[Rfam]
RNA sequence: CGUUGUGGUGGUUUUCUUUGUGGUACAUUUGUUAAGUUUUCAAAUGGCCCCUGACUCUGCCACAUAUAUUACACAGGAGCUGGCAAAGGCUUGAUGAGAAAGAGAUCUCUCUCUGGCUUUUCCCGUGUCAGAGAUUGGCUUCCACACGU
Numbered sequence: 001c002g003u004u005g006u007g008g009u010g011g012u013u014u015u016c017u018u019u020g021u022g023g024u025a026c027a028u029u030u031g032u033u034a035a036g037u038u039u040u041c042a043a044a045u046g047g048c049c050c051c052u053g054a055c056u057c058u059g060c061c062a063c064a065u066a067u068a069u070u071a072c073a074c075a076g077g078a079g080c081u082g083g084c085a086a087a088g089g090c091u092u093g094a095u096g097a098g099a100a101a102g103a104g105a106u107c108u109c110u111c112u113c114u115g116g117c118u119u120u121u122c123c124c125g126u127g128u129c130a131g132a133g134a135u136u137g138g139c140u141u142c143c144a145c146a147c148g149u
Stems, first nucleotide, its partner, number of pairs: 005063007022050002026046006076142006082091003108134005
Rfam assigns this 149-nucleotide sequence from Loxodonta africana to the family "Small nucleolar RNA SNORA12". Rfam's curators write: U108 belongs to the H/ACA family of snoRNAs. The sequence is predicted to guide the pseudouridylation of the U372 residue in the 28S rRNA subunit. However it has not been reported as a pseudouridylation site. For this family Rfam cites "A novel experimental approach for systematic identification of box H/ACA snoRNAs from eukaryotes" (Gu et al., Nucleic Acids Res, 2005). The family has 23 seed sequences and 571 matches in Rfam 15.1. It is annotated as an H/ACA-box small nucleolar RNA.